Rfam assigns this 100-nucleotide sequence from Nelumbo nucifera to the family "MIR394 microRNA precursor family".

RNA sequence: GUUACAGAGCCAUUUUGGCAUUCUGUCCACCUCCAUUUAGAAUUCUAUAUGGGUAGUGCAUCACUUGGAGGUGGCCAGCAUGUCAAAAUAGCUGUGUAAA
Numbered sequence: 001g002u003u004a005c006a007g008a009g010c011c012a013u014u015u016u017g018g019c020a021u022u023c024u025g026u027c028c029a030c031c032u033c034c035a036u037u038u039a040g041a042a043u044u045c046u047a048u049a050u051g052g053g054u055a056g057u058g059c060a061u062c063a064c065u066u067g068g069a070g071g072u073g074g075c076c077a078g079c080a081u082g083u084c085a086a087a088a089u090a091g092c093u094g095u096g097u098a099a100a
Stems, first nucleotide, its partner, number of pairs: 015086006024077002027074008
Lineage of the source: Eukaryota > Streptophyta > Euphyllophyta > Proteales > Nelumbo. Rfam links the family to the GO terms RISC complex and miRNA-mediated post-transcriptional gene silencing. A reference for the family is Jones-Rhoades and Bartel (2004), "Computational identification of plant microRNAs and their targets, including a stress-induced miRNA", Mol Cell. Pairs were carried over by alignment from the consensus structure, which was predicted with WAR. The match comes from Rfam's covariance-model search (67 bits). Rfam 15.1 lists 724 matches to the family in 216 species.